[Rfam]
RNA sequence: AAUUAAAUUCAAAAAGUUCUUGACUUUAGGUUUUUGAUUAUGGUAUAUUAAUUAGGUAAUUCAAAAUAAUAUUAGCGCGGGAUGGAGCAGUUCGG
Numbered sequence: 001a002a003u004u005a006a007a008u009u010c011a012a013a014a015a016g017u018u019c020u021u022g023a024c025u026u027u028a029g030g031u032u033u034u035u036g037a038u039u040a041u042g043g044u045a046u047a048u049u050a051a052u053u054a055g056g057u058a059a060u061u062c063a064a065a066a067u068a069a070u071a072u073u074a075g076c077g078c079g080g081g082a083u084g085g086a087g088c089a090g091u092u093c094g095g
Stems, first nucleotide, its partner, number of pairs: 004040003010022003059070003
A member of the RNA family "Staphylococcus sRNA 774" from Staphylococcus aureus, 95 nucleotides long. About the family: Northern blot transcript confirmed in exponentially growing and stationary cells in three cultivation media. Trans-encoded. It is one of the family's seed sequences. The base pairs follow the family's consensus structure, which was predicted with R-scape. The organism belongs to Staphylococcus aureus, within Bacteria. It is annotated as a small RNA.